Notes: SAM riboswitch aptamer (S box leader): a 96-nucleotide sequence from Pseudonocardia sediminis. A search with the family's covariance model found it, with a score of 50 bits. The base pairs follow the family's consensus structure, which is taken from published work.
RNA sequence: GCACCAUCCAGAGCGGCCGAGAGACCUGGCUCGUCGACGCCGCAGCAACCCCCCGCAUCCCGCGGGUGCGGGUGCUCACGCCGGGACCGAUGGGGG
Numbered sequence: 001g002c003a004c005c006a007u008c009c010a011g012a013g014c015g016g017c018c019g020a021g022a023g024a025c026c027u028g029g030c031u032c033g034u035c036g037a038c039g040c041c042g043c044a045g046c047a048a049c050c051c052c053c054c055g056c057a058u059c060c061c062g063c064g065g066g067u068g069c070g071g072g073u074g075c076u077c078a079c080g081c082c083g084g085g086a087c088c089g090a091u092g093g094g095g096g
Stems, first nucleotide, its partner, number of pairs: 002095001004093005013043005021032003026084004044076004049072002051068001053066002080088001